The family of this 363-nucleotide part of an RNA from Mitosporidium daphniae is "Eukaryotic large subunit ribosomal RNA". The match comes from Rfam's covariance-model search (3158 bits).
RNA sequence: GAGUGGUCAUUGCAAUAGUAAUUCAAUCUAGUACGAGAGGAACCGUUGAUUCAGAUAAUUGGUCUAUGCUCUUGGCUGACAGGCCAUUGGGGCGAAGCUACCAUCUGUUGGAUUAUGGCUGAACGCCUCUAAGUCAGAAUCCAUGCUAGAGGCAAUGACAGGCUUUCCUAUGGCCGAGUAUAGUAAAGAUAAGUGCCGCAAGGUGCUUGGAACAAGGACGCCUGGCCUGCUGGGCCGGGCAACCACUGGGGCUGGAAAGAGAGAAUCCUGUGAAGACGACUCAGGGAGAACCAGGUAUUGUAAGGGGCAGAGUAGUCUAGCUACUACGAUCCCCUGAGAUUAAGCCUCGGUUCUGCGAUUUUG
Numbered sequence: 001g002a003g004u005g006g007u008c009a010u011u012g013c014a015a016u017a018g019u020a021a022u023u024c025a026a027u028c029u030a031g032u033a034c035g036a037g038a039g040g041a042a043c044c045g046u047u048g049a050u051u052c053a054g055a056u057a058a059u060u061g062g063u064c065u066a067u068g069c070u071c072u073u074g075g076c077u078g079a080c081a082g083g084c085c086a087u088u089g090g091g092g093c094g095a096a097g098c099u100a101c102c103a104u105c106u107g108u109u110g111g112a113u114u115a116u117g118g119c120u121g122a123a124c125g126c127c128u129c130u131a132a133g134u135c136a137g138a139a140u141c142c143a144u145g146c147u148a149g150a151g152g153c154a155a156u157g158a159c160a161g162g163c164u165u166u167c168c169u170a171u172g173g174c175c176g177a178g179u180a181u182a183g184u185a186a187a188g189a190u191a192a193g194u195g196c197c198g199c200a201a202g203g204u205g206c207u208u209g210g211a212a213c214a215a216g217g218a219c220g221c222c223u224g225g226c227c228u229g230c231u232g233g234g235c236c237g238g239g240c241a242a243c244c245a246c247u248g249g250g251g252c253u254g255g256a257a258a259g260a261g262a263g264a265a266u267c268c269u270g271u272g273a274a275g276a277c278g279a280c281u282c283a284g285g286g287a288g289a290a291c292c293a294g295g296u297a298u299u300g301u302a303a304g305g306g307g308c309a310g311a312g313u314a315g316u317c318u319a320g321c322u323a324c325u326a327c328g329a330u331c332c333c334c335u336g337a338g339a340u341u342a343a344g345c346c347u348c349g350g351u352u353c354u355g356c357g358a359u360u361u362u363g
Stems, first nucleotide, its partner, number of pairs: 006159008016148004021051001023049005052107005060100003067094005073086005109143003116136005163259006263361005268284003272280001288353005293347003297340002304334004309330001312327005